[Rfam]
RNA sequence: CCUCUUCAAGAUGACGAGUUCAUUGAGUAUAUUCUCACAUGAUAGUUUACGACUUCAACUCUAUUAUCUCUUCUCUUAUUGAUGGGCGGAGCUAGUACAUGUUAGUGAGUUUUAUUCUCAAUUGCUUACCUUUGAGA
Numbered sequence: 001c002c003u004c005u006u007c008a009a010g011a012u013g014a015c016g017a018g019u020u021c022a023u024u025g026a027g028u029a030u031a032u033u034c035u036c037a038c039a040u041g042a043u044a045g046u047u048u049a050c051g052a053c054u055u056c057a058a059c060u061c062u063a064u065u066a067u068c069u070c071u072u073c074u075c076u077u078a079u080u081g082a083u084g085g086g087c088g089g090a091g092c093u094a095g096u097a098c099a100u101g102u103u104a105g106u107g108a109g110u111u112u113u114a115u116u117c118u119c120a121a122u123u124g125c126u127u128a129c130c131u132u133u134g135a136g137a
Stems, first nucleotide, its partner, number of pairs: 004136003008132001086106002089103002
The record is a 137-nucleotide sequence from Kalanchoe fedtschenkoi, which matches "Small nucleolar RNA Z247" in Rfam. A reference for the family is Chen et al. (2003), "The high diversity of snoRNAs in plants: identification and comparative study of 120 snoRNA genes from Oryza sativa", Nucleic Acids Res. The family has 8 seed sequences and 7,071 matches in Rfam 15.1. Rfam links the family to the GO terms nucleolus and RNA processing. The source organism's lineage runs through Eukaryota, Streptophyta, Mesangiospermae, Saxifragales and Kalanchoe.